[Rfam]
RNA: FMN riboswitch aptamer (RFN element)
RNA sequence: ACUUAUUCUCAGGGCGGGGCGCAAGUCCCCACCGGCGGUAUCCCAGUUUUACUGGGGAGCCCGCGAGCGCUCUUCCCGUUAGGGGAGAGGUCAGCAGAACUGGUGAAAUGCCAGUGCCGACGGUAUAGUCCGGACGAAAGAGGAUAAGG
Numbered sequence: 001a002c003u004u005a006u007u008c009u010c011a012g013g014g015c016g017g018g019g020c021g022c023a024a025g026u027c028c029c030c031a032c033c034g035g036c037g038g039u040a041u042c043c044c045a046g047u048u049u050u051a052c053u054g055g056g057g058a059g060c061c062c063g064c065g066a067g068c069g070c071u072c073u074u075c076c077c078g079u080u081a082g083g084g085g086a087g088a089g090g091u092c093a094g095c096a097g098a099a100c101u102g103g104u105g106a107a108a109u110g111c112c113a114g115u116g117c118c119g120a121c122g123g124u125a126u127a128g129u130c131c132g133g134a135c136g137a138a139a140g141a142g143g144a145u146a147a148g149g
Stems, first nucleotide, its partner, number of pairs: 003147008017029003031129002033119002035064004059117002067095002099115005121132003
Dot-bracket structure: ..((((((((......(((.......))).[[((((((....................[[))))..((.........................))...(((((.......)))))]])).(((....]]))).......))))))))..